[Rfam]
RNA sequence: CAGCGCCGCGCGGGAGAGUCUCGGGACAGCCAGUCUCGGGCGCCGAAGGAGCAAUACCUCCCCGUCAACCUCUCAGGCACCAGGACCGCGCACGCAUC
Numbered sequence: 001c002a003g004c005g006c007c008g009c010g011c012g013g014g015a016g017a018g019u020c021u022c023g024g025g026a027c028a029g030c031c032a033g034u035c036u037c038g039g040g041c042g043c044c045g046a047a048g049g050a051g052c053a054a055u056a057c058c059u060c061c062c063c064g065u066c067a068a069c070c071u072c073u074c075a076g077g078c079a080c081c082a083g084g085a086c087c088g089c090g091c092a093c094g095c096a097u098c
Base pairs, nucleotide, nucleotide: 008091009090010089011088012087013086020040021039022038023037024036025035042078043077044076045074046073049072050071051070056065057064
Shown here is a 98-nucleotide RNA sequence from Mycobacterium sinensis, a member of the family "Glycine riboswitch aptamer". The source organism's lineage runs through Bacteria, Actinomycetota, Actinomycetes, Mycobacteriales and Mycobacterium (subgen. Mycolicibacter).